Shown here is a 210-nucleotide sequence from Alkalicaulis satelles, a member of the family "permuted transfer-messenger RNA".

[Rfam]
RNA sequence: GGCGAUAAACGCGCGUGUAAUAACCAGACCGGACCCGGGUGCGAAUCCCGGCGGCUCCACCAAAUUCCCGCUCGUUGGGCGGCAUGAGGGGCCGACUAGCAUCGACGGAUGGCUAAAGGCGUAGCUUUCGCCCGAAUGGGCUUCGUUACCAGCCCACUCAAAGUAGUUGCCAACGACAACUAUGCUGAAGAGGUCGCUCUCGCUGCGUAG
Numbered sequence: 001g002g003c004g005a006u007a008a009a010c011g012c013g014c015g016u017g018u019a020a021u022a023a024c025c026a027g028a029c030c031g032g033a034c035c036c037g038g039g040u041g042c043g044a045a046u047c048c049c050g051g052c053g054g055c056u057c058c059a060c061c062a063a064a065u066u067c068c069c070g071c072u073c074g075u076u077g078g079g080c081g082g083c084a085u086g087a088g089g090g091g092c093c094g095a096c097u098a099g100c101a102u103c104g105a106c107g108g109a110u111g112g113c114u115a116a117a118g119g120c121g122u123a124g125c126u127u128u129c130g131c132c133c134g135a136a137u138g139g140g141c142u143u144c145g146u147u148a149c150c151a152g153c154c155c156a157c158u159c160a161a162a163g164u165a166g167u168u169g170c171c172a173a174c175g176a177c178a179a180c181u182a183u184g185c186u187g188a189a190g191a192g193g194u195c196g197c198u199c200u201c202g203c204u205g206c207g208u209a210g
Stems, first nucleotide, its partner, number of pairs: 001132005013122004025111002029108003035051005052094007133145004
Source information: The literature on the family includes a 1996 paper in RNA by Williams and Bartel, "Phylogenetic analysis of tmRNA secondary structure". Lineage of the source: Bacteria > Pseudomonadati > Maricaulales > Maricaulaceae > Alkalicaulis. The match comes from Rfam's covariance-model search (130 bits).